[Rfam]
RNA sequence: UUAAGUUUCUUUGUUUAGAUAAAACAAAGUGGUGCGGAUGGGUUACUCCCGCUCAGUUUCUUGCUUCUGAUUAAAAAGCAAGUGGCGUGCAUGACA
Numbered sequence: 001u002u003a004a005g006u007u008u009c010u011u012u013g014u015u016u017a018g019a020u021a022a023a024a025c026a027a028a029g030u031g032g033u034g035c036g037g038a039u040g041g042g043u044u045a046c047u048c049c050c051g052c053u054c055a056g057u058u059u060c061u062u063g064c065u066u067c068u069g070a071u072u073a074a075a076a077a078g079c080a081a082g083u084g085g086c087g088u089g090c091a092u093g094a095c096a
Stems, first nucleotide, its partner, number of pairs: 009029006016023001039051004053070004060082006